[Rfam]
RNA sequence: ACCACUCCCUCUCUACAACGGAUCGUCCGGCACGUUCCUGCCGGUGAAGGGGGCCCUCA
Numbered sequence: 001a002c003c004a005c006u007c008c009c010u011c012u013c014u015a016c017a018a019c020g021g022a023u024c025g026u027c028c029g030g031c032a033c034g035u036u037c038c039u040g041c042c043g044g045u046g047a048a049g050g051g052g053g054c055c056c057u058c059a
Stems, first nucleotide, its partner, number of pairs: 009051004014046002027044006
RNA: msiK RNA